Annotation:
The record is an 82-nucleotide RNA sequence from Ophiophagus hannah, which matches "mir-199 microRNA precursor family" in Rfam. The base pairs follow the family's consensus structure, which was predicted with RNAalifold. Rfam describes the family as follows. This family consists of the microRNA (miRNA) precursor mir-199 which appears to be specific to humans. Animal miRNAs are transcribed as ~70nt precursors and subsequently processed by the Dicer enzyme to give a ~22nt product. Its family is annotated with RISC complex and miRNA-mediated post-transcriptional gene silencing in the Gene Ontology. The literature on the family includes a 2001 paper in Cell by Ambros, "microRNAs: tiny regulators with great potential". The sequence is in the family's curated seed alignment. The organism belongs to Ophiophagus, within Eukaryota.

RNA sequence: GCCCCACUUGCCCAGCGUUCAGACUACCUGUUCAGAAAACUACAAAAGUAUACAGUAGUUUGCACAUUGAUUAGAUUGGGCU
Numbered sequence: 001g002c003c004c005c006a007c008u009u010g011c012c013c014a015g016c017g018u019u020c021a022g023a024c025u026a027c028c029u030g031u032u033c034a035g036a037a038a039a040c041u042a043c044a045a046a047a048g049u050a051u052a053c054a055g056u057a058g059u060u061u062g063c064a065c066a067u068u069g070a071u072u073a074g075a076u077u078g079g080g081c082u
Stems, first nucleotide, its partner, number of pairs: 013069003017065002020062007028055004034049001